Eukaryotic large subunit ribosomal RNA: a 472-nucleotide part of an RNA from Ophiocordyceps camponoti-rufipedis.

[Rfam]
RNA sequence: GAAGACCCUGUUGAGCUUGACUCUAGUUUGACAUUGUGAAAAGACAUGGGAGGUGUAGAAUAGGUGGGAGCUCCGGCGCCGGUGAAAUACCACUACUCCCAUUGUUUUUUUACUUAUUCGGUGGAGCGGGGCUGGGCUUGCGCCCAACUUCUGGUCUUAAGGUCCUCCGCGGGCCGACCCGGGCUGAAGACAUUGUCAGGUGGGGAGUUUGGCUGGGGCGGCACAUCUGUUAAACCAUAACGCAGGUGUCCUAAGGGGGGCUCAUGGAGAACAGAAAUCUCCAGUGGAACAAAAGGGUAAAAGUCCCCUUGAUUUUGAUUUUCAGUGUGAAUACAAACCAUGAAAGUGUGGCCUAUCGAUCCUUUAGUCCCUCGGCGUUUGAGGCUAGAGGUGCCAGAAAAGUUACCACAGGGAUAACUGGCUUGUGGCGGCCAAGCGUUCAUAGCGACGUCGCUUUUUGAUCCUUCGAUGU
Numbered sequence: 001g002a003a004g005a006c007c008c009u010g011u012u013g014a015g016c017u018u019g020a021c022u023c024u025a026g027u028u029u030g031a032c033a034u035u036g037u038g039a040a041a042a043g044a045c046a047u048g049g050g051a052g053g054u055g056u057a058g059a060a061u062a063g064g065u066g067g068g069a070g071c072u073c074c075g076g077c078g079c080c081g082g083u084g085a086a087a088u089a090c091c092a093c094u095a096c097u098c099c100c101a102u103u104g105u106u107u108u109u110u111u112a113c114u115u116a117u118u119c120g121g122u123g124g125a126g127c128g129g130g131g132c133u134g135g136g137c138u139u140g141c142g143c144c145c146a147a148c149u150u151c152u153g154g155u156c157u158u159a160a161g162g163u164c165c166u167c168c169g170c171g172g173g174c175c176g177a178c179c180c181g182g183g184c185u186g187a188a189g190a191c192a193u194u195g196u197c198a199g200g201u202g203g204g205g206a207g208u209u210u211g212g213c214u215g216g217g218g219c220g221g222c223a224c225a226u227c228u229g230u231u232a233a234a235c236c237a238u239a240a241c242g243c244a245g246g247u248g249u250c251c252u253a254a255g256g257g258g259g260g261c262u263c264a265u266g267g268a269g270a271a272c273a274g275a276a277a278u279c280u281c282c283a284g285u286g287g288a289a290c291a292a293a294a295g296g297g298u299a300a301a302a303g304u305c306c307c308c309u310u311g312a313u314u315u316u317g318a319u320u321u322u323c324a325g326u327g328u329g330a331a332u333a334c335a336a337a338c339c340a341u342g343a344a345a346g347u348g349u350g351g352c353c354u355a356u357c358g359a360u361c362c363u364u365u366a367g368u369c370c371c372u373c374g375g376c377g378u379u380u381g382a383g384g385c386u387a388g389a390g391g392u393g394c395c396a397g398a399a400a401a402g403u404u405a406c407c408a409c410a411g412g413g414a415u416a417a418c419u420g421g422c423u424u425g426u427g428g429c430g431g432c433c434a435a436g437c438g439u440u441c442a443u444a445g446c447g448a449c450g451u452c453g454c455u456u457u458u459u460g461a462u463c464c465u466u467c468g469a470u471g472u
Stems, first nucleotide, its partner, number of pairs: 007412004012408002014404005020208004027200007036113010046102007063094005070077002117188005127181004135144003161175005211224001212222003225247006250351002256308006262288002265283006289298002313337003318332004339348003362390006370384004421462001423460001425459001427455006436446002

A search with the family's covariance model found it, with a score of 3121 bits.